[Rfam]
Group II catalytic intron D1-D4-3: a 170-nucleotide sequence from Pseudoalteromonas sp. NBT06-2. The organism belongs to Pseudoalteromonas, within Bacteria. The match comes from Rfam's covariance-model search (48 bits).
RNA sequence: UUACUGGCUAACGGUGAGGUCUGAAGGAAGCCAUAAGAAGUUAGAGGUACACAAGUAACCGUAACCUGUUUCGGCGGUAUUGGUGGGUAAGCGUGCAAAAUAGCGUGACGCCCUAUACUUAGUCAGUCCAAUACUGUGUUUGAGGGUGGCACUUCUAACAGGGAGCUAGU
Dot-bracket structure: ((((((.....))))))...............((..(...(((((....(((............(((......(((.((((((.((((..((((........))))...))))..............)))))).))).....)))))).....))))).......)..))